[Rfam]
RNA sequence: CCCGCACGCAGACUCAAAAGGUCAUUUCCCUCCAGUGUUCUGCCCUUGCUAUGUGUGCGCAAAAAAAAACGAACCUUGUCGCCUUUCUUAGGCUGUAAAACGUGCCACUGAAAGUGAAUUCAAGGUGCGACAUGU
Numbered sequence: 001c002c003c004g005c006a007c008g009c010a011g012a013c014u015c016a017a018a019a020g021g022u023c024a025u026u027u028c029c030c031u032c033c034a035g036u037g038u039u040c041u042g043c044c045c046u047u048g049c050u051a052u053g054u055g056u057g058c059g060c061a062a063a064a065a066a067a068a069a070c071g072a073a074c075c076u077u078g079u080c081g082c083c084u085u086u087c088u089u090a091g092g093c094u095g096u097a098a099a100a101c102g103u104g105c106c107a108c109u110g111a112a113a114g115u116g117a118a119u120u121c122a123a124g125g126u127g128c129g130a131c132a133u134g135u
Base pairs, nucleotide, nucleotide: 003059004058005057006056007055008054009053020045021044023042024041028037071128073126074125075124076123077122083114084113085112086111087110091106092105093104
RNA: Small nucleolar RNA SNORA68
Organism: Anabarilius grahami